[Rfam]
RNA sequence: UUGCAUGUUGCACCCCGGGCUUAUCAUGACGAAAAAAGCCCCAAUGCUCAUGCUAAAUUUAUGCCGUUGUAGUGUUGCAGGUUCGCUUAGUUCUUCAACAGCUUAUUUGUGUCAAAAUAACUGCCACAUUC
Numbered sequence: 001u002u003g004c005a006u007g008u009u010g011c012a013c014c015c016c017g018g019g020c021u022u023a024u025c026a027u028g029a030c031g032a033a034a035a036a037a038g039c040c041c042c043a044a045u046g047c048u049c050a051u052g053c054u055a056a057a058u059u060u061a062u063g064c065c066g067u068u069g070u071a072g073u074g075u076u077g078c079a080g081g082u083u084c085g086c087u088u089a090g091u092u093c094u095u096c097a098a099c100a101g102c103u104u105a106u107u108u109g110u111g112u113c114a115a116a117a118u119a120a121c122u123g124c125c126a127c128a129u130u131c
Stems, first nucleotide, its partner, number of pairs: 003053005010047002017041005022035001024032002063124002066121004073114002076111006085102003
About this RNA: Rfam assigns this 131-nucleotide RNA sequence from Papaver somniferum to the family "small nucleolar RNA snoR134". NCBI's taxonomy places the organism under Eukaryota, Euphyllophyta, Ranunculales, Papaveraceae, Papaver. By type it is an H/ACA-box small nucleolar RNA. Pairs were carried over by alignment from the consensus structure, which was predicted with RNAalifold. A search with the family's covariance model found it, with a score of 90 bits.